[Rfam]
This 76-nucleotide sequence from Labilibaculum filiforme belongs to the Rfam family "Flavo-1 RNA".

RNA sequence: UUUUUGCGUGAGGGAUAGCAGCGGCAUCCUUUUUUGUAUUUUCACAAAAAAGAUAUAGCGGAUAGCCCGACCCUUG
Numbered sequence: 001u002u003u004u005u006g007c008g009u010g011a012g013g014g015a016u017a018g019c020a021g022c023g024g025c026a027u028c029c030u031u032u033u034u035u036g037u038a039u040u041u042u043c044a045c046a047a048a049a050a051a052g053a054u055a056u057a058g059c060g061g062a063u064a065g066c067c068c069g070a071c072c073c074u075u076g
Stems, first nucleotide, its partner, number of pairs: 012068003016064002021059002026054003032049005
By type it is a small RNA. The family's consensus secondary structure is taken from published work.